Source information:
Rfam assigns this 111-nucleotide RNA sequence from Stackebrandtia nassauensis to the family "TPP riboswitch aptamer (THI element)". The source organism's lineage runs through Bacteria, Bacillati, Actinomycetota, Glycomycetales and Stackebrandtia nassauensis. Rfam links the family to the GO term thiamine pyrophosphate binding. A search with the family's covariance model found it, with a score of 63 bits.

[Rfam]
RNA sequence: CCACCCACCCGCGGGAGUCCGGUGCACCGGACUGAGAGGGGAGCUUGGUAGCUCCCGACCGUCGAACCUGAUCUGGGUAAUGCCAGCGCAGGGAAGGAGCCCUGGUUGAGU
Numbered sequence: 001c002c003a004c005c006c007a008c009c010c011g012c013g014g015g016a017g018u019c020c021g022g023u024g025c026a027c028c029g030g031a032c033u034g035a036g037a038g039g040g041g042a043g044c045u046u047g048g049u050a051g052c053u054c055c056c057g058a059c060c061g062u063c064g065a066a067c068c069u070g071a072u073c074u075g076g077g078u079a080a081u082g083c084c085a086g087c088g089c090a091g092g093g094a095a096g097g098a099g100c101c102c103u104g105g106u107u108g109a110g111u
Base pairs, nucleotide, nucleotide: 006099008097009096011062012061013060014059017032018031019030020029021028039056040055041054042053043052044051045050067092068091069090070089073086074085075084076083